[Rfam]
RNA sequence: GCAACUCGCGCUACUCCGGUACUUACGACUGUGCAUUCGAUAGUCAGGUACCUGAAGUAGCGCGCGCUGCG
Numbered sequence: 001g002c003a004a005c006u007c008g009c010g011c012u013a014c015u016c017c018g019g020u021a022c023u024u025a026c027g028a029c030u031g032u033g034c035a036u037u038c039g040a041u042a043g044u045c046a047g048g049u050a051c052c053u054g055a056a057g058u059a060g061c062g063c064g065c066g067c068u069g070c071g
Stems, first nucleotide, its partner, number of pairs: 001070003005066001007064007021049002024047001027045004
Notes:
mir-275 microRNA precursor family: a 71-nucleotide sequence from Nasonia giraulti. It is one of the family's seed sequences. The source organism's lineage runs through Eukaryota, Insecta, Endopterygota, Apocrita and Nasonia. For this family Rfam cites "Anopheles gambiae miRNAs as actors of defence reaction against Plasmodium invasion" (Winter et al., Nucleic Acids Res, 2007). Its family is annotated with miRNA-mediated post-transcriptional gene silencing and RISC complex in the Gene Ontology.